This 82-nucleotide sequence from Ottowia beijingensis belongs to the Rfam family "Proteo-phage-1 RNA". It scores 68 bits against the family's covariance model. The family's RNA type in Rfam is small RNA. The source organism's lineage runs through Bacteria, Pseudomonadota, Betaproteobacteria, Burkholderiales and Ottowia.

RNA sequence: CCCUUGCCGGGAGGGGCCGCAAGGCAAUGCCCCGGAUGCGGAUCAGACGGCCAGUACCGCACAGCCAGCAACCCCGUCAGCC
Numbered sequence: 001c002c003c004u005u006g007c008c009g010g011g012a013g014g015g016g017c018c019g020c021a022a023g024g025c026a027a028u029g030c031c032c033c034g035g036a037u038g039c040g041g042a043u044c045a046g047a048c049g050g051c052c053a054g055u056a057c058c059g060c061a062c063a064g065c066c067a068g069c070a071a072c073c074c075c076g077u078c079a080g081c082c
Base pairs, nucleotide, nucleotide: 001015002014003013004012007035008034009033010032011031016025017024018023037061038060039059040058041057046078047077048076049075050074